[Rfam]
RNA sequence: UCUGCGUGGGGGGCUUUGACGCGCGGCCCACACACCGGCCGCCGGGACCGCGCCGAGCCACUGGCGAGACCGACCCGCCGUUGA
Numbered sequence: 001u002c003u004g005c006g007u008g009g010g011g012g013g014c015u016u017u018g019a020c021g022c023g024c025g026g027c028c029c030a031c032a033c034a035c036c037g038g039c040c041g042c043c044g045g046g047a048c049c050g051c052g053c054c055g056a057g058c059c060a061c062u063g064g065c066g067a068g069a070c071c072g073a074c075c076c077g078c079c080g081u082u083g084a
Stems, first nucleotide, its partner, number of pairs: 001084002004081003007077004012059003021053006028046001037071002040066004
Rfam assigns this 84-nucleotide sequence to the family "c-di-GMP-II-GAG riboswitch aptamer". Rfam links the family to the GO terms regulation of gene expression and cyclic-di-GMP binding. It is one of the family's seed sequences. The family's consensus secondary structure is taken from published work. On this family, see Weinberg et al., Proc Natl Acad Sci U S A 2017: "Bioinformatic analysis of riboswitch structures uncovers variant classes with altered ligand specificity".